[Rfam]
RNA sequence: CUAUUACCUUGCCAAAACUAGAGUGAUUUAGUGACGGAAAGCCGCGAGUCUCAAGUAGAUAGUCGGGUUGCAUAC
Numbered sequence: 001c002u003a004u005u006a007c008c009u010u011g012c013c014a015a016a017a018c019u020a021g022a023g024u025g026a027u028u029u030a031g032u033g034a035c036g037g038a039a040a041g042c043c044g045c046g047a048g049u050c051u052c053a054a055g056u057a058g059a060u061a062g063u064c065g066g067g068u069u070g071c072a073u074a075c
Stems, first nucleotide, its partner, number of pairs: 012037002017032006040069004045065003048060003
About this RNA:
A member of the RNA family "c-di-GMP-I riboswitch aptamer" from Halarcobacter anaerophilus, 75 nucleotides long. A search with the family's covariance model found it, with a score of 51 bits.